[Rfam]
RNA: Small nucleolar RNA SNORD19
Organism: Muraenolepis orangiensis
RNA sequence: GAGGAAAUGAGGACAAAAACGCACUGUCUUGACUAUGAUGAAGACUUCUAAUCCAACUCUGAUCCUCAACAUUUCA
Dot-bracket structure: ((((...........................................................)))).........